Shown here is a 124-nucleotide RNA sequence from Glycine max, a member of the family "MIR1520 microRNA precursor family".
Lineage of the source: Eukaryota > Streptophytina > eudicotyledons > fabids > Glycine subgen. Soja.
Clan: MIR1520 microRNA precursor clan.
Rfam links the family to the GO terms miRNA-mediated post-transcriptional gene silencing and RISC complex.

RNA sequence: UUCUUAUUGGAUGAUGACUAUCACUUGCCAUGUUCUGAUUGGAUGUCAACUCUAUGGAAGAUGAAAUGCAUUAAUUAUUGUUUUCAUUGACCAAUCAAAACAUGAUACAUGACAGUUAUUAUCC
Number, nucleotide and partner (000 for none) at each position: 001u000002u000003c000004u000005u000006a000007u000008u000009g000010g000011a000012u000013g000014a000015u000016g000017a000018c000019u000020a000021u112022c111023a110024c000025u000026u107027g000028c000029c104030a103031u102032g000033u100034u099035c000036u097037g000038a095039u094040u093041g092042g091043a000044u000045g000046u000047c000048a000049a000050c000051u000052c000053u000054a000055u000056g000057g000058a000059a000060g000061a000062u000063g000064a000065a000066a000067u000068g000069c000070a000071u000072u000073a000074a000075u000076u000077a000078u000079u000080g000081u000082u000083u000084u000085c000086a000087u000088u000089g000090a000091c042092c041093a040094a039095u038096c000097a036098a000099a034100a033101c000102a031103u030104g029105a000106u000107a026108c000109a000110u023111g022112a021113c000114a000115g000116u000117u000118a000119u000120u000121a000122u000123c000124c000